[Rfam]
RNA sequence: CCGGGUCCUACGGCAGACACCCGGCAGUCAGGACGAUCCGUCUCAAGCGCUGC
Numbered sequence: 001c002c003g004g005g006u007c008c009u010a011c012g013g014c015a016g017a018c019a020c021c022c023g024g025c026a027g028u029c030a031g032g033a034c035g036a037u038c039c040g041u042c043u044c045a046a047g048c049g050c051u052g053c
Stems, first nucleotide, its partner, number of pairs: 001024006013053004031043005
The family of this 53-nucleotide sequence is "chrB-b RNA".